[Rfam]
RNA sequence: UUUUUACCCAGUAUCUCAAGGUACUUUGGAGUUCUAUGACCGAUCUUGAUUGUGUCAUAAAAUAAAAAUUUUUGGAUCAGCAUUGCUGGGGAUAUCCGGUAAUGCAAA
Numbered sequence: 001u002u003u004u005u006a007c008c009c010a011g012u013a014u015c016u017c018a019a020g021g022u023a024c025u026u027u028g029g030a031g032u033u034c035u036a037u038g039a040c041c042g043a044u045c046u047u048g049a050u051u052g053u054g055u056c057a058u059a060a061a062a063u064a065a066a067a068a069u070u071u072u073u074g075g076a077u078c079a080g081c082a083u084u085g086c087u088g089g090g091g092a093u094a095u096c097c098g099g100u101a102a103u104g105c106a107a108a
Base pairs, nucleotide, nucleotide: 006032007029008028011026014023016021037057038056039055040054041052042051043050044049084104085103087101088100090097091096

The family of this 108-nucleotide sequence from Panagrolaimus superbus is "SL2 RNA". It is annotated as a non-coding RNA gene. It scores 51 bits against the family's covariance model. Taxonomically the source falls in Panagrolaimus (Eukaryota, Rhabditida, Tylenchina, Panagrolaimoidea). Rfam 15.1 lists 598 matches to the family in 38 species. Rfam links the family to the GO term mRNA trans splicing, via spliceosome.